[Rfam]
RNA sequence: GCAGUAAAAUACAUACCUGCUUAUAUAUCGUCGUAAUCUGGUCGACAGUCUCUACCCAGUACCGUAAAUACUGGACUAUAAGCAAAAAACGUGCGUAA
Numbered sequence: 001g002c003a004g005u006a007a008a009a010u011a012c013a014u015a016c017c018u019g020c021u022u023a024u025a026u027a028u029c030g031u032c033g034u035a036a037u038c039u040g041g042u043c044g045a046c047a048g049u050c051u052c053u054a055c056c057c058a059g060u061a062c063c064g065u066a067a068a069u070a071c072u073g074g075a076c077u078a079u080a081a082g083c084a085a086a087a088a089a090c091g092u093g094c095g096u097a098a
Base pairs, nucleotide, nucleotide: 018084019083020082021081022080023079024078025077030046031045032044033043056074057073058072059071060070061069